[Rfam]
RNA sequence: UCCAUCGCGAGGUGGAAUUUGAAGGAAGCUGGAGGCAAACUUCCGGCCCGAGGAACACGAACAUCAUCAGGCAUAUGGAAUGGGAUGAGCCUGCAAGACAAGGCAAAGUCCAAUACACUACACAGACAUUUCAGUGUAAAUGAUGCGGGUACAUGGAAGGAAAGUGAAUCGU
Numbered sequence: 001u002c003c004a005u006c007g008c009g010a011g012g013u014g015g016a017a018u019u020u021g022a023a024g025g026a027a028g029c030u031g032g033a034g035g036c037a038a039a040c041u042u043c044c045g046g047c048c049c050g051a052g053g054a055a056c057a058c059g060a061a062c063a064u065c066a067u068c069a070g071g072c073a074u075a076u077g078g079a080a081u082g083g084g085a086u087g088a089g090c091c092u093g094c095a096a097g098a099c100a101a102g103g104c105a106a107a108g109u110c111c112a113a114u115a116c117a118c119u120a121c122a123c124a125g126a127c128a129u130u131u132c133a134g135u136g137u138a139a140a141u142g143a144u145g146c147g148g149g150u151a152c153a154u155g156g157a158a159g160g161a162a163a164g165u166g167a168a169u170c171g172u
Base pairs, nucleotide, nucleotide: 001016002015003014004013005012006011028172029171031169035165036164040159041158042157043156044155045154046150047149048148049147050146062145063144064143065142066141071137072136073135076133077132078131079130080129081128082127083111084110085109086108089104090103091102092101